[Rfam]
This 77-nucleotide RNA from Panagrolaimus sp. ES5 belongs to the Rfam family "nuoG RNA".
RNA sequence: GAAUCUCGAUUAACUCCUGGACCACCUGGUGAUCCUGGUGAGCCAGGACCAUGGGGUCCUCCAGGACAUCCUGGAAG
Numbered sequence: 001g002a003a004u005c006u007c008g009a010u011u012a013a014c015u016c017c018u019g020g021a022c023c024a025c026c027u028g029g030u031g032a033u034c035c036u037g038g039u040g041a042g043c044c045a046g047g048a049c050c051a052u053g054g055g056g057u058c059c060u061c062c063a064g065g066a067c068a069u070c071c072u073g074g075a076a077g
Stems, first nucleotide, its partner, number of pairs: 015066007
The family's RNA type in Rfam is cis-regulatory element.
It scores 37 bits against the family's covariance model.
NCBI's taxonomy places the organism under Eukaryota, Metazoa, Eumetazoa, Protostomia, Panagrolaimus.